[Rfam]
RNA: TPP riboswitch aptamer (THI element)
Organism: Stieleria bergensis
RNA sequence: GACUGAACGCAGGGGUGUCCCUUCUGGGCUGAGAGUUUCGGACAGCAUGAGUCGAAACAACCCUUUGAACCUGAUACGGGUCAUACCGACGAAGGGAGCGAGACGGCCUCACAA
Numbered sequence: 001g002a003c004u005g006a007a008c009g010c011a012g013g014g015g016u017g018u019c020c021c022u023u024c025u026g027g028g029c030u031g032a033g034a035g036u037u038u039c040g041g042a043c044a045g046c047a048u049g050a051g052u053c054g055a056a057a058c059a060a061c062c063c064u065u066u067g068a069a070c071c072u073g074a075u076a077c078g079g080g081u082c083a084u085a086c087c088g089a090c091g092a093a094g095g096g097a098g099c100g101a102g103a104c105g106g107c108c109u110c111a112c113a114a
Stems, first nucleotide, its partner, number of pairs: 008100003011064004017029004036057005070095003077088003